The record is a 105-nucleotide RNA sequence from Paenibacillus antarcticus, which matches "TPP riboswitch aptamer (THI element)" in Rfam.
RNA sequence: GUAUUUCACUAGGGGAGUCUAACGACUGAGAUGGAACUUUACGUUUCCGGACCCUUGGAACCUGAUCUGGAUUAUACCAGCGGAGGGAAGUGGAACGAAAUCUUC
Dot-bracket structure: .....(((((((((..(((....)))......((((........))))...)))).....(((...((((......))))...)))..)))))............
Lineage of the source: Bacteria > Bacillati > Caryophanales > Paenibacillaceae > Paenibacillus. From the family's description: Vitamin B(1) in its active form thiamin pyrophosphate (TPP) is an essential coenzyme that is synthesised by coupling of pyrimidine and thiazole moieties in bacteria. The previously detected thiamin-regulatory element, thi box was extended, resulting in a new, highly conserved RNA secondary structure, the THI element, which is widely distributed in eubacteria and also occurs in some archaea. Analysis of operon structures identified a large number of new candidate thiamin-regulated genes, mostly transporters, in various prokaryotic organisms. The THI element is a riboswitch that directly binds to TPP to regulate gene expression through a variety of mechanisms in archaea, bacteria and eukaryotes. through a variety of mechanisms in archaea, bacteria and eukaryotes. Tandem TPP riboswitches have been reported where both TPP riboswitches respond independently to TPP. The structure of TPP riboswitch has been reported for Escherichia coli and Arabidopsis thaliana. It scores 76 bits against the family's covariance model.